[Rfam]
RNA: SL2 RNA
Nucleotides: 109
Base pairs, nucleotide, nucleotide: 007035008034009031010030016025018023037061038060039059040058041056043054044053045052085106086105087104088103092098093097
Number, partner (000 for none) and nucleotide at each position: 001000g002000g003000u004000u005000u006000u007035a008034c009031c010030c011000c012000a013000g014000u015000a016025u017000c018023u019000c020000a021000a022000g023018g024000u025016a026000c027000u028000a029000a030010g031009g032000g033000c034008g035007u036000c037061c038060g039059a040058c041056c042000u043054g044053c045052c046000a047000c048000u049000u050000g051000u052045g053044g054043u055000u056041g057000c058040g059039u060038c061037g062000a063000a064000a065000a066000c067000c068000u069000c070000a071000a072000u073000u074000u075000u076000u077000g078000g079000a080000u081000c082000g083000c084000c085106u086105u087104c088103u089000c090000g091000g092098g093097g094000u095000a096000u097093c098092c099000g100000g101000g102000a103088a104087g105086g106085a107000a108000a109000u